[Rfam]
Nucleotides: 100
Stems, first nucleotide, its partner, number of pairs: 001099007010025003027062005076092005
Number, partner (000 for none) and nucleotide at each position: 001099g002098u003097a004096g005095c006094c007093g008000u009000g010025g011024c012023c013000g014000a015000g016000c017000g018000g019000u020000u021000a022000a023012g024011g025010c026000g027062c028061c029060a030059g031058g032000g033000u034000a035000a036000g037000g038000u039000c040000a041000c042000a043000a044000c045000u046000u047000u048000a049000c050000c051000a052000u053000a054000c055000u056000u057000u058031c059030c060029u061028g062027g063000u064000a065000u066000c067000u068000u069000c070000g071000g072000a073000u074000g075000c076092g077091c078090g079089a080088g081000u082000u083000c084000a085000a086000a087000u088080c089079u090078c091077g092076u093007c094006g095005g096004c097003u098002a099001c100000a